Shown here is a 118-nucleotide sequence from Streptomyces albus, a member of the family "Streptomyces sRNA scr5239".
NCBI's taxonomy places the organism under Bacteria, Bacillati, Actinomycetota, Streptomycetaceae, Streptomyces.
Pairs were carried over by alignment from the consensus structure, which is taken from published work.
By type it is a small RNA.
It scores 93 bits against the family's covariance model.
RNA sequence: CUUCUGUCCUCUCCGCACAAGAGGGCAGAUCGAGGCCCGGCGCUCUCUGCCCUGACAGCGACGGGUCUUGCGGCUCCGGGCUGCGGUGCCGGGCGGGUUGAGGGUCCCGCUCCGGCGC
Numbered sequence: 001c002u003u004c005u006g007u008c009c010u011c012u013c014c015g016c017a018c019a020a021g022a023g024g025g026c027a028g029a030u031c032g033a034g035g036c037c038c039g040g041c042g043c044u045c046u047c048u049g050c051c052c053u054g055a056c057a058g059c060g061a062c063g064g065g066u067c068u069u070g071c072g073g074c075u076c077c078g079g080g081c082u083g084c085g086g087u088g089c090c091g092g093g094c095g096g097g098u099u100g101a102g103g104g105u106c107c108c109g110c111u112c113c114g115g116c117g118c
Base pairs, nucleotide, nucleotide: 003029004028005027006026008024009023010022011021012020032069033068034067035066036065037064038063039062042059043058044055045054073087074086075085077083078082091112092111093110094109095108096107097106